[Rfam]
RNA sequence: GCCAAAUGAUGUGAAGUGGAUGGCACUAGCACUCUGUGCAAGGAUGACCCUCAUCUAUCACCCCAUGCUGAUGGCU
Numbered sequence: 001g002c003c004a005a006a007u008g009a010u011g012u013g014a015a016g017u018g019g020a021u022g023g024c025a026c027u028a029g030c031a032c033u034c035u036g037u038g039c040a041a042g043g044a045u046g047a048c049c050c051u052c053a054u055c056u057a058u059c060a061c062c063c064c065a066u067g068c069u070g071a072u073g074g075c076u
Stems, first nucleotide, its partner, number of pairs: 001075004029039004
About this RNA
Rfam assigns this 76-nucleotide sequence from Onychorhynchus coronatus to the family "Small nucleolar RNA SNORD83". Gene Ontology terms of the family: nucleolus and RNA processing. The match comes from Rfam's covariance-model search (60 bits). The base pairs follow the family's consensus structure, which was predicted with PFOLD.